The family of this 92-nucleotide sequence from Streptomyces sp. PBH53 is "sodF sRNA". Pairs were carried over by alignment from the consensus structure. It is annotated as a small RNA. For this family Rfam cites "Inverse regulation of Fe- and Ni-containing SOD genes by a Fur family regulator Nur through small RNA processed from 3'UTR of the sodF mRNA" (Kim et al., Nucleic Acids Res, 2014). It scores 49 bits against the family's covariance model.
[Rfam]
RNA sequence: GCGCCUGGCCUCGUGAUCGUCUUCUCACCCUUCACGGCGGCGGGUGCCGCAGGAACGGAAAGGCCCCCACGUCCGACACGUGGGGGCCUUUC
Numbered sequence: 001g002c003g004c005c006u007g008g009c010c011u012c013g014u015g016a017u018c019g020u021c022u023u024c025u026c027a028c029c030c031u032u033c034a035c036g037g038c039g040g041c042g043g044g045u046g047c048c049g050c051a052g053g054a055a056c057g058g059a060a061a062g063g064c065c066c067c068c069a070c071g072u073c074c075g076a077c078a079c080g081u082g083g084g085g086g087c088c089u090u091u092c
Stems, first nucleotide, its partner, number of pairs: 001050003005044002008041003013035004019029001058092015